[Rfam]
The record is a 100-nucleotide sequence from Niallia taxi, which matches "Purine riboswitch aptamer" in Rfam. Rfam describes the family as follows. Riboswitches are metabolite binding domains within certain messenger RNAs that serve as precision sensors for their corresponding targets. A search with the family's covariance model found it, with a score of 78 bits. The family's consensus secondary structure is taken from published work.
RNA sequence: CAUACAACGAAUAAUAUUACCUGUAUAACCUCAAGAAUAUGGCUUGAGGGUCUCUACCAGGAACCUUAAAAUCCUGAUUACAGAAAAUGAAAUUAAUUCA
Numbered sequence: 001c002a003u004a005c006a007a008c009g010a011a012u013a014a015u016a017u018u019a020c021c022u023g024u025a026u027a028a029c030c031u032c033a034a035g036a037a038u039a040u041g042g043c044u045u046g047a048g049g050g051u052c053u054c055u056a057c058c059a060g061g062a063a064c065c066u067u068a069a070a071a072u073c074c075u076g077a078u079u080a081c082a083g084a085a086a087a088u089g090a091a092a093u094u095a096a097u098u099c100a
Base pairs, nucleotide, nucleotide: 018086021083022082023081024080025079029049030048031047032046033045034044035043058076059075060074061073062072